This 86-nucleotide RNA from Fistulifera solaris belongs to the Rfam family "Selenocysteine transfer RNA".
Its Rfam clan is "tRNA clan".
The family has 109 seed sequences and 4,211 matches in Rfam 15.1.
On this family, see Mizutani and Goto, FEBS Lett 2000: "Eukaryotic selenocysteine tRNA has the 9/4 secondary structure".
Pairs were carried over by alignment from the consensus structure, which is taken from published work.
Its family is annotated with triplet codon-amino acid adaptor activity in the Gene Ontology.

RNA sequence: GCGGGCAUGAUCCUGACUGGUGUUGGGCGCGGACUUCAAAUCCGUGGACGCCGAGAGGCGUAGUGGUCCGAUUCCACCUUGUCCGC
Numbered sequence: 001g002c003g004g005g006c007a008u009g010a011u012c013c014u015g016a017c018u019g020g021u022g023u024u025g026g027g028c029g030c031g032g033a034c035u036u037c038a039a040a041u042c043c044g045u046g047g048a049c050g051c052c053g054a055g056a057g058g059c060g061u062a063g064u065g066g067u068c069c070g071a072u073u074c075c076a077c078c079u080u081g082u083c084c085g086c
Stems, first nucleotide, its partner, number of pairs: 001086007009078001012027006028046006048061005063077004